[Rfam]
RNA sequence: CUCUGGUCGUGGAAGAAUCAGGGCAGAAAGAG
Numbered sequence: 001c002u003c004u005g006g007u008c009g010u011g012g013a014a015g016a017a018u019c020a021g022g023g024c025a026g027a028a029a030g031a032g
Stems, first nucleotide, its partner, number of pairs: 001023005007016002
Dot-bracket structure: (((((.((......))..))))).........